[Rfam]
RNA sequence: AUCGGUUUGUAGUACAGACCUUAUGCAAGCAAAUUUAGUAAAGCAGUCUUCAUUUCAAGCGUUAUCCGUCGAUAUCCUUUCUCAUGAGCCUCCUUUUAAAGUGACCAUAAGCUAUUUACUGUAUAGCAGAUCAGAUUCGCCAUUCUGAGCGGAUCGAUAAGUAAGGAUUUAACGAUGUCUACUAAGAUGACUGGUUUAGUAAAGUGGUUUGAUGCAGGUAAAGGUUUUGGUUUUAUCUCUCCUGCAGACGGUAGCAAAGACGUGUUUGUUCACUUCUCUGCAAUCCAAAGCAAUGGUUUCAAAACUCUAGCUGAAGGCCAAAACGUUGAGUUUGAAAUUCAAGAUGGACAAAAAGGUCCAGCAGCAGUAAACGUCACUGCUAUCUAAUUCUCGGUUUUCCGAAGUAAUUAUGAAUCCCCGCUCAUGCGGGGAUUUUUCUU
Numbered sequence: 001a002u003c004g005g006u007u008u009g010u011a012g013u014a015c016a017g018a019c020c021u022u023a024u025g026c027a028a029g030c031a032a033a034u035u036u037a038g039u040a041a042a043g044c045a046g047u048c049u050u051c052a053u054u055u056c057a058a059g060c061g062u063u064a065u066c067c068g069u070c071g072a073u074a075u076c077c078u079u080u081c082u083c084a085u086g087a088g089c090c091u092c093c094u095u096u097u098a099a100a101g102u103g104a105c106c107a108u109a110a111g112c113u114a115u116u117u118a119c120u121g122u123a124u125a126g127c128a129g130a131u132c133a134g135a136u137u138c139g140c141c142a143u144u145c146u147g148a149g150c151g152g153a154u155c156g157a158u159a160a161g162u163a164a165g166g167a168u169u170u171a172a173c174g175a176u177g178u179c180u181a182c183u184a185a186g187a188u189g190a191c192u193g194g195u196u197u198a199g200u201a202a203a204g205u206g207g208u209u210u211g212a213u214g215c216a217g218g219u220a221a222a223g224g225u226u227u228u229g230g231u232u233u234u235a236u237c238u239c240u241c242c243u244g245c246a247g248a249c250g251g252u253a254g255c256a257a258a259g260a261c262g263u264g265u266u267u268g269u270u271c272a273c274u275u276c277u278c279u280g281c282a283a284u285c286c287a288a289a290g291c292a293a294u295g296g297u298u299u300c301a302a303a304a305c306u307c308u309a310g311c312u313g314a315a316g317g318c319c320a321a322a323a324c325g326u327u328g329a330g331u332u333u334g335a336a337a338u339u340c341a342a343g344a345u346g347g348a349c350a351a352a353a354a355g356g357u358c359c360a361g362c363a364g365c366a367g368u369a370a371a372c373g374u375c376a377c378u379g380c381u382a383u384c385u386a387a388u389u390c391u392c393g394g395u396u397u398u399c400c401g402a403a404g405u406a407a408u409u410a411u412g413a414a415u416c417c418c419c420g421c422u423c424a425u426g427c428g429g430g431g432a433u434u435u436u437u438c439u440u
Base pairs, nucleotide, nucleotide: 004020005019006018007017008016009015028243029242031240033238042234043233046232048230049229050224051223054222055221061219062218063217067214068213069212070211071210072209074208075207076206080177082175083174085172093165094164097163098162101117103115179194180193181192183190247339248338259267260266270328272326273325275323277322279320280319281317285310287308289306294303345360346359347358348357349356361383363381364380365379366378367377368376387405388404389403391402392401393400394399410437412435413434414433415432416431417430418429419428420427421426